RNA sequence: CUGUAUAUUUUUCAAACAACAGCAAGAAAAAUUGCUCGAAAAAGAAUCACCGCCUACAAUUUUUUUGCUUCUUGCGCUACGUCAGUUUACUUACUACAAGUAAUGGGUAGUAUGUACGCCGGCUAACUCCUCACUCUGAGGAG
Numbered sequence: 001c002u003g004u005a006u007a008u009u010u011u012u013c014a015a016a017c018a019a020c021a022g023c024a025a026g027a028a029a030a031a032u033u034g035c036u037c038g039a040a041a042a043a044g045a046a047u048c049a050c051c052g053c054c055u056a057c058a059a060u061u062u063u064u065u066u067g068c069u070u071c072u073u074g075c076g077c078u079a080c081g082u083c084a085g086u087u088u089a090c091u092u093a094c095u096a097c098a099a100g101u102a103a104u105g106g107g108u109a110g111u112a113u114g115u116a117c118g119c120c121g122g123c124u125a126a127c128u129c130c131u132c133a134c135u136c137u138g139a140g141g142a143g
Stems, first nucleotide, its partner, number of pairs: 038077001042073004049069001051067002081123003085119002088116003092112006099104001127143006